Shown here is a 102-nucleotide RNA from Bacillus sp. B1-b2, a member of the family "Purine riboswitch aptamer".
RNA sequence: UCUAUAAUAAUAUAAUUCCUUCAUAUAUCCUCGAUGAUAUGGUUCGAGAGUCUCUACCGGAUUACCUUAAAUGAUCUGACUAUGAAGGCAGAAACGUCUUCU
Numbered sequence: 001u002c003u004a005u006a007a008u009a010a011u012a013u014a015a016u017u018c019c020u021u022c023a024u025a026u027a028u029c030c031u032c033g034a035u036g037a038u039a040u041g042g043u044u045c046g047a048g049a050g051u052c053u054c055u056a057c058c059g060g061a062u063u064a065c066c067u068u069a070a071a072u073g074a075u076c077u078g079a080c081u082a083u084g085a086a087g088g089c090a091g092a093a094a095c096g097u098c099u100u101c102u
Base pairs, nucleotide, nucleotide: 018088019087020086021085022084023083024082025081030048031047032046033045034044058078059077060076061075062074063073064072
The source organism's lineage runs through Bacteria, Bacillota, Caryophanales, Bacillaceae and Bacillus. The base pairs follow the family's consensus structure, which is taken from published work.